[Rfam]
The record is a 124-nucleotide RNA from Solanum tuberosum, which matches "MIR8024 microRNA precursor family" in Rfam.
RNA sequence: UUGGAGGAUUUGAAGACUUCAACUUGCAUACAUGGGUGCACCUACAGUGGGUCUUUUUGUUCAUAUGAACCCAUUUCGUUGGAGACUUCAACUUGCAUACUUUGAGGAUUUGAAGAGUCUAACU
Numbered sequence: 001u002u003g004g005a006g007g008a009u010u011u012g013a014a015g016a017c018u019u020c021a022a023c024u025u026g027c028a029u030a031c032a033u034g035g036g037u038g039c040a041c042c043u044a045c046a047g048u049g050g051g052u053c054u055u056u057u058u059g060u061u062c063a064u065a066u067g068a069a070c071c072c073a074u075u076u077c078g079u080u081g082g083a084g085a086c087u088u089c090a091a092c093u094u095g096c097a098u099a100c101u102u103u104g105a106g107g108a109u110u111u112g113a114a115g116a117g118u119c120u121a122a123c124u
Stems, first nucleotide, its partner, number of pairs: 001122005009114006017106003021102001025097004033090004

The family's consensus secondary structure was predicted with RNAalifold.